[Rfam]
RNA sequence: ACCGAUAAAGGCAAACUCAGCGAAAGCUGGGGACGCAAAGUCACGGAUCUAAGGCGUAAUGCUAUGAUGGCCGGGCCGCCGAAA
Dot-bracket structure: ..((......((...((((((....))))))..[))...(((.((((((................))).]))))))...))...
RNA: c-di-GMP-I-GGC riboswitch aptamer